[Rfam]
RNA sequence: GGAGGUGAAGUGCGGGUUGUAGUUGAGAAACACAUAGCCCCGCGCCUGAUCGAUGGCAUGGAACAGCGGGUUCCAGUCGAAGAUGGACAGCAUGUAUCCCGGCAGGGUAUUGGCCACGAACAUCUUUCCCGAGGCAACCAUGUUCGCGCGG
Numbered sequence: 001g002g003a004g005g006u007g008a009a010g011u012g013c014g015g016g017u018u019g020u021a022g023u024u025g026a027g028a029a030a031c032a033c034a035u036a037g038c039c040c041c042g043c044g045c046c047u048g049a050u051c052g053a054u055g056g057c058a059u060g061g062a063a064c065a066g067c068g069g070g071u072u073c074c075a076g077u078c079g080a081a082g083a084u085g086g087a088c089a090g091c092a093u094g095u096a097u098c099c100c101g102g103c104a105g106g107g108u109a110u111u112g113g114c115c116a117c118g119a120a121c122a123u124c125u126u127u128c129c130c131g132a133g134g135c136a137a138c139c140a141u142g143u144u145c146g147c148g149c150g151g
Base pairs, nucleotide, nucleotide: 002035004033006032007031011027013025014024015023037057038056039055041052042051064151066149067148068147071081072080073079086145089144090143091142092141093140094139098134099133100131101130102129104126105125106124107123108122110119111118112117